Record summary: Shown here is a 78-nucleotide RNA sequence from Apis mellifera, a member of the family "mir-219 microRNA precursor family". Pairs were carried over by alignment from the consensus structure, which was predicted with RNAalifold. Lineage of the source: Eukaryota > Arthropoda > Pancrustacea > Apinae > Apis. Rfam 15.1 lists 1,318 matches to the family in 774 species. Rfam's curators put it in the seed alignment.
RNA sequence: UCAGGCAAUGAUUGUCCAAACGCAAUUCUUGUCUAAACGGUACGAAAUCAAGAAUUGUGUGGGGACAUCAGCGCUCGA
Dot-bracket structure: .(.(((..((((.((((...(((((((((((.................)))))))))))...))))))))..))).).